RNA sequence: UAUAUUUGCCGCUGAAUAGAAAUACUAUUCGUACAUAAUAAUCAUUGAAAUAAUAUUGGAAUG
Numbered sequence: 001u002a003u004a005u006u007u008g009c010c011g012c013u014g015a016a017u018a019g020a021a022a023u024a025c026u027a028u029u030c031g032u033a034c035a036u037a038a039u040a041a042u043c044a045u046u047g048a049a050a051u052a053a054u055a056u057u058g059g060a061a062u063g
Stems, first nucleotide, its partner, number of pairs: 014030006

Record summary:
The record is a 63-nucleotide RNA, which matches "S15-Flavobacteria ribosomal protein leader" in Rfam. Rfam's curators put it in the seed alignment. The base pairs follow the family's consensus structure, which is taken from published work. The family's RNA type in Rfam is cis-regulatory leader.